[Rfam]
RNA sequence: CAUCCAUCCCGAGCGACCGAGAGACCUGGCUCGUCGACGUCGCAGCAACCGCUCACUCGUGACGGACACCGAGUGGGGGCAGGUGCUAACGCCAGGCCCGAUGGAGG
Numbered sequence: 001c002a003u004c005c006a007u008c009c010c011g012a013g014c015g016a017c018c019g020a021g022a023g024a025c026c027u028g029g030c031u032c033g034u035c036g037a038c039g040u041c042g043c044a045g046c047a048a049c050c051g052c053u054c055a056c057u058c059g060u061g062a063c064g065g066a067c068a069c070c071g072a073g074u075g076g077g078g079g080c081a082g083g084u085g086c087u088a089a090c091g092c093c094a095g096g097c098c099c100g101a102u103g104g105a106g107g
Stems, first nucleotide, its partner, number of pairs: 001107001003105006013043005021032003026095004044087004049083002051080004091099001